Rfam assigns this 64-nucleotide RNA from Myotis lucifugus to the family "mir-9242 microRNA precursor family".
The source organism's lineage runs through Eukaryota, Opisthokonta, Tetrapoda, Mammalia and Myotis.

RNA sequence: GACCUCCCUCUUUGGAGCAAUCGAUCAUGGAGCUCCAUGAUCGAUUGCUCAGCAGAGGGAGGCC
Numbered sequence: 001g002a003c004c005u006c007c008c009u010c011u012u013u014g015g016a017g018c019a020a021u022c023g024a025u026c027a028u029g030g031a032g033c034u035c036c037a038u039g040a041u042c043g044a045u046u047g048c049u050c051a052g053c054a055g056a057g058g059g060a061g062g063c064c
Base pairs, nucleotide, nucleotide: 001064003062004061005060006059007058008057009056010055011054013052015050016049017048018047019046020045021044022043023042024041025040026039027038028037029036030035